[Rfam]
RNA sequence: GAGGGUGUACUUAGAGCCCUCUGCACGAUGUGUGUUAAUAGUAGUGGCUUUUGGCCGAGCCGCACGGUUAGAGAAUC
Number, nucleotide and partner (000 for none) at each position: 001g021002a020003g019004g018005g017006u016007g000008u000009a000010c000011u000012u000013a000014g000015a000016g006017c005018c004019c003020u002021c001022u000023g000024c000025a000026c000027g000028a000029u000030g000031u000032g000033u000034g000035u071036u070037a069038a068039u067040a000041g065042u064043a000044g000045u062046g061047g060048c059049u058050u057051u000052u000053g000054g000055c000056c000057g050058a049059g048060c047061c046062g045063c000064a042065c041066g000067g039068u038069u037070a036071g035072a000073g000074a000075a000076u000077c000

Rfam assigns this 77-nucleotide RNA sequence from Prevotella corporis to the family "L13-Bacteroidia ribosomal protein leader". On this family, see Eckert and Weinberg, BMC Microbiol 2020: "Discovery of 20 novel ribosomal leader candidates in bacteria and archaea". Pairs were carried over by alignment from the consensus structure, which is taken from published work. Rfam classes the family as a cis-regulatory leader.